[Rfam]
A member of the RNA family "Nuclear RNase P" from Hebeloma cylindrosporum, 404 nucleotides long. Pairs were carried over by alignment from the consensus structure, which is taken from published work. Ribonuclease P (RNase P) is a ubiquitous endoribonuclease, found in archaea, bacteria and eukarya as well as chloroplasts and mitochondria. Its best characterised activity is the generation of mature 5'-ends of tRNAs by cleaving the 5'-leader elements of precursor-tRNAs. Cellular RNase Ps are ribonucleoproteins. RNA from bacterial RNase Ps retains its catalytic activity in the absence of the protein subunit, i.e. it is a ribozyme.
RNA sequence: ACAGAUGAAAAGCUGCGAGGCUCGCCCCAUACAGGACAAGGUUUCGACCAUCGUCUACAUUUGCGAGCGGGCUAAGGUCUGAGCAUUCUAAUCAUUCUCGAUCGAUCCUAGCGGGAUCCAGCUGUCAUCGGCUGCAACGGCGUAUCAGAAAUCCGACCCAUCGCGUUUAUCCUCUCGAGGAAGCCCAAAAAUCGCCCGAUCUUGUUGGCAGGAGGGCAUGGUGUGGUGUGGUCUUGGAACUCGCUGUAAUGAUUGGGUGGCGAGGCAUUGGACCGACUUUGCUCUGUCACCGGGGCAGAGUCGGUUGGGCACGACUAUCCUUCAGCUCACUUCGCAGCGCAUUUGAUAGUUCUCUUCCUGGGAGAAAGCUAGUUGAAACUCGAUUCAGACUACUCUUCAUCUGU
Numbered sequence: 001a002c003a004g005a006u007g008a009a010a011a012g013c014u015g016c017g018a019g020g021c022u023c024g025c026c027c028c029a030u031a032c033a034g035g036a037c038a039a040g041g042u043u044u045c046g047a048c049c050a051u052c053g054u055c056u057a058c059a060u061u062u063g064c065g066a067g068c069g070g071g072c073u074a075a076g077g078u079c080u081g082a083g084c085a086u087u088c089u090a091a092u093c094a095u096u097c098u099c100g101a102u103c104g105a106u107c108c109u110a111g112c113g114g115g116a117u118c119c120a121g122c123u124g125u126c127a128u129c130g131g132c133u134g135c136a137a138c139g140g141c142g143u144a145u146c147a148g149a150a151a152u153c154c155g156a157c158c159c160a161u162c163g164c165g166u167u168u169a170u171c172c173u174c175u176c177g178a179g180g181a182a183g184c185c186c187a188a189a190a191a192u193c194g195c196c197c198g199a200u201c202u203u204g205u206u207g208g209c210a211g212g213a214g215g216g217c218a219u220g221g222u223g224u225g226g227u228g229u230g231g232u233c234u235u236g237g238a239a240c241u242c243g244c245u246g247u248a249a250u251g252a253u254u255g256g257g258u259g260g261c262g263a264g265g266c267a268u269u270g271g272a273c274c275g276a277c278u279u280u281g282c283u284c285u286g287u288c289a290c291c292g293g294g295g296c297a298g299a300g301u302c303g304g305u306u307g308g309g310c311a312c313g314a315c316u317a318u319c320c321u322u323c324a325g326c327u328c329a330c331u332u333c334g335c336a337g338c339g340c341a342u343u344u345g346a347u348a349g350u351u352c353u354c355u356u357c358c359u360g361g362g363a364g365a366a367a368g369c370u371a372g373u374u375g376a377a378a379c380u381c382g383a384u385u386c387a388g389a390c391u392a393c394u395c396u397u398c399a400u401c402u403g404u
Stems, first nucleotide, its partner, number of pairs: 001404004007398003020068005034055002037053001079388005084251004104118005119134006137247006155233003